A member of the RNA family "Small nucleolar RNA SNORA81" from Anguilla anguilla, 184 nucleotides long.
The base pairs follow the family's consensus structure, which was predicted with WAR.
The match comes from Rfam's covariance-model search (96 bits).
RNA sequence: UCUUCUGCGUUUAAGAACCAUGCUAAAAUUUUCUAAAUCAAGUCGUCUUGGUUUAUGAAAUAAUGCUAGCAGGGUAGUAGGUUGAAGUAGAAUAUUUAGCACUGCACUGCACUGCAAAUGAGAUGUGGGCAGACCUCUUUCUUAAUGUCCGGUGUCCUGUGUCUCAAAGUCUAGUGCCACAAAU
Numbered sequence: 001u002c003u004u005c006u007g008c009g010u011u012u013a014a015g016a017a018c019c020a021u022g023c024u025a026a027a028a029u030u031u032u033c034u035a036a037a038u039c040a041a042g043u044c045g046u047c048u049u050g051g052u053u054u055a056u057g058a059a060a061u062a063a064u065g066c067u068a069g070c071a072g073g074g075u076a077g078u079a080g081g082u083u084g085a086a087g088u089a090g091a092a093u094a095u096u097u098a099g100c101a102c103u104g105c106a107c108u109g110c111a112c113u114g115c116a117a118a119u120g121a122g123a124u125g126u127g128g129g130c131a132g133a134c135c136u137c138u139u140u141c142u143u144a145a146u147g148u149c150c151g152g153u154g155u156c157c158u159g160u161g162u163c164u165c166a167a168a169g170u171c172u173a174g175u176g177c178c179a180c181a182a183a184u
Base pairs, nucleotide, nucleotide: 018074019073021071022070023069024068025067028064029063030062034055035054037052038051039050040049041048042047104177105176106175107174108173109172111170128153130151132149133148

Rfam links the family to the GO terms RNA processing and nucleolus. The source organism's lineage runs through Eukaryota, Metazoa, Bilateria, Anguillidae and Anguilla.